A member of the RNA family "Streptomyces RNA 4115" from Streptomyces sp. A73, 111 nucleotides long. Pairs were carried over by alignment from the consensus structure. A search with the family's covariance model found it, with a score of 79 bits. The organism belongs to Streptomyces, within Bacteria. Identified by deep sequencing of transcriptome at the end of exponential growth phase. Sequencing size consistent with notrthern blot size. Streptomyces specific. Rfam classes the family as a small RNA.
RNA sequence: GCGUGGGUCGGCCCGCUGUACAUGGUCAGUGGGCUGGGGGACACCGCCGCCUCAUUCCCCGCGGGUGGCGGUCCGGGCCGGGAGGUGCGCAACGCCCCUCCCGGCCCGGCA
Numbered sequence: 001g002c003g004u005g006g007g008u009c010g011g012c013c014c015g016c017u018g019u020a021c022a023u024g025g026u027c028a029g030u031g032g033g034c035u036g037g038g039g040g041a042c043a044c045c046g047c048c049g050c051c052u053c054a055u056u057c058c059c060c061g062c063g064g065g066u067g068g069c070g071g072u073c074c075g076g077g078c079c080g081g082g083a084g085g086u087g088c089g090c091a092a093c094g095c096c097c098c099u100c101c102c103g104g105c106c107c108g109g110c111a
Stems, first nucleotide, its partner, number of pairs: 001110002006074002009036010037042001044071009075107011087095001